[Rfam]
RNA sequence: AUGACCUUACUUGAACAGGAUCUGUUCUAUGGGCUUGUAUCUUAUGUAUCCAUAAGUUCAAAGGAGACAGGAUUUCAAAUCUGGUUGACGAAUCGAGACUCUGUGAUCAGAGCGUGAUUAAUGGUGAGGUGAUUCCUUGUUGGUCUACCUUAACCGCAGAGGAUCGUCAUCAGCUGGCCUUGUCUAGCUGGGGAUGGUCACACAGUUGUCUGACAGAUC
Number, nucleotide and partner (000 for none) at each position: 001a038002u037003g035004a000005c033006c032007u031008u000009a000010c000011u000012u000013g027014a026015a025016c024017a023018g022019g000020a000021u000022c018023u017024g016025u015026u014027c013028u000029a000030u000031g007032g006033g005034c000035u003036u000037g002038u001039a000040u000041c000042u000043u000044a000045u069046g068047u067048a000049u065050c064051c063052a000053u061054a000055a000056g000057u000058u000059c000060a000061a053062a000063g051064g050065a049066g000067a047068c046069a045070g000071g000072a000073u000074u000075u000076c000077a000078a000079a218080u217081c216082u215083g214084g000085u000086u000087g000088a000089c000090g000091a000092a000093u000094c000095g000096a000097g000098a206099c205100u204101c000102u202103g201104u200105g199106a198107u197108c196109a195110g000111a000112g167113c166114g165115u000116g000117a000118u000119u000120a000121a000122u156123g155124g154125u153126g151127a150128g149129g148130u147131g146132a000133u000134u143135c142136c000137u000138u000139g000140u000141u000142g135143g134144u000145c000146u131147a130148c129149c128150u127151u126152a000153a125154c124155c123156g122157c000158a000159g000160a000161g000162g000163a000164u000165c114166g113167u112168c000169a000170u191171c190172a189173g188174c187175u186176g185177g184178c000179c000180u000181u000182g000183u000184c177185u176186a175187g174188c173189u172190g171191g170192g000193g000194a000195u109196g108197g107198u106199c105200a104201c103202a102203c000204a100205g099206u098207u000208g000209u000210c000211u000212g000213a000214c083215a082216g081217a080218u079219c000
Rfam assigns this 219-nucleotide sequence from Gossypium barbadense to the family "Plant small nucleolar RNA U3". Its family is annotated with RNA processing and nucleolus in the Gene Ontology. A search with the family's covariance model found it, with a score of 151 bits. Rfam 15.1 lists 3,759 matches to the family in 258 species. Clan: U3 clan. About the family: Small nucleolar RNAs (snoRNAs) are involved in the processing and modification of rRNA in the nucleolus. There are two main classes of snoRNAs: the box C/D class, and the box H/ACA class. U3 snoRNA is a member of the box C/D class.